[Rfam]
RNA sequence: GUCCAAUACUCUGGAGAGACCGACCUGCCCCCGGGCAGGAACCGGCGCCGAAGGGGCAAGAAGCGCGCACGGGACACCCUCCCCCUCCCGGCGCUUCCAAACUCUCAGGCAAAAGGACAGAGGGGCGCCU
Numbered sequence: 001g002u003c004c005a006a007u008a009c010u011c012u013g014g015a016g017a018g019a020c021c022g023a024c025c026u027g028c029c030c031c032c033g034g035g036c037a038g039g040a041a042c043c044g045g046c047g048c049c050g051a052a053g054g055g056g057c058a059a060g061a062a063g064c065g066c067g068c069a070c071g072g073g074a075c076a077c078c079c080u081c082c083c084c085c086u087c088c089c090g091g092c093g094c095u096u097c098c099a100a101a102c103u104c105u106c107a108g109g110c111a112a113a114a115g116g117a118c119a120g121a122g123g124g125g126c127g128c129c130u
Base pairs, nucleotide, nucleotide: 007124009122010121011120012119013118020045021044022043047110048109049108050106051105054104055103056102060097061096062095063094064093065092066091
Rfam assigns this 130-nucleotide sequence from Agrilutibacter solisilvae to the family "Glycine riboswitch aptamer". About the family: This family represents the bacterial glycine riboswitch. The source organism's lineage runs through Bacteria, Pseudomonadati, Gammaproteobacteria, Lysobacterales and Agrilutibacter.